[Rfam]
RNA sequence: UCGCUUUUCCGUUAGGUGAGGCUCCUAUAUGAACAUACGCUGCUACUCAGAAACAUCGAGAGAUGCCAAUUGAGUCAACAAAAACUGCCAAUGAAGGCUUUUUCUAACGUAGCUGAACAUGGUUUCUACGUCAUAUAGUGCUAAAACUGAACGAUUGGGAACGCCA
Numbered sequence: 001u002c003g004c005u006u007u008u009c010c011g012u013u014a015g016g017u018g019a020g021g022c023u024c025c026u027a028u029a030u031g032a033a034c035a036u037a038c039g040c041u042g043c044u045a046c047u048c049a050g051a052a053a054c055a056u057c058g059a060g061a062g063a064u065g066c067c068a069a070u071u072g073a074g075u076c077a078a079c080a081a082a083a084a085c086u087g088c089c090a091a092u093g094a095a096g097g098c099u100u101u102u103u104c105u106a107a108c109g110u111a112g113c114u115g116a117a118c119a120u121g122g123u124u125u126c127u128a129c130g131u132c133a134u135a136u137a138g139u140g141c142u143a144a145a146a147c148u149g150a151a152c153g154a155u156u157g158g159g160a161a162c163g164c165c166a
Stems, first nucleotide, its partner, number of pairs: 006161005011152002013095001015148003020142003025138008039113005045075005054065004082103003087098003115126003
Shown here is a 166-nucleotide sequence from Latilactobacillus sakei, a member of the family "M-box riboswitch aptamer (ykoK leader)".
It is one of the family's seed sequences.
The literature on the family includes a 2010 paper in RNA Biol by Ramesh and Winkler, "Magnesium-sensing riboswitches in bacteria".
NCBI's taxonomy places the organism under Bacteria, Bacilli, Lactobacillales, Lactobacillaceae, Latilactobacillus sakei subsp. sakei.
About the family: M-box riboswitch, also know as ykoK leader is described as a metaloregulatory RNA that sense divalent metals and function as a genetic control element of genes related to divalent metal transport in bacteria. It was first reported upstream of the B.subtilis ykoK gene and genes with related functions in other bacteria.
Gene Ontology terms of the family: regulation of gene expression and response to magnesium ion.